[Rfam]
RNA sequence: GGCAGGCGUGCGCGGGUAGCUCCUGGUCGUCCCUAGGGACGGCAGCCGGUAAAACGGUGGGAUCCUGGGGUCCGGAGCCUGCCAUUUU
Numbered sequence: 001g002g003c004a005g006g007c008g009u010g011c012g013c014g015g016g017u018a019g020c021u022c023c024u025g026g027u028c029g030u031c032c033c034u035a036g037g038g039a040c041g042g043c044a045g046c047c048g049g050u051a052a053a054a055c056g057g058u059g060g061g062a063u064c065c066u067g068g069g070g071u072c073c074g075g076a077g078c079c080u081g082c083c084a085u086u087u088u
Base pairs, nucleotide, nucleotide: 001083002082003081004080005079006078007077011075013074014073015072016071020070021069022068023067025065026043027042028041029040030039031038032037046057047056048055
The record is an 88-nucleotide RNA sequence, which matches "DUF3800-VII RNA" in Rfam. The sequence is in the family's curated seed alignment. Rfam classes the family as a small RNA. The base pairs follow the family's consensus structure, which is taken from published work.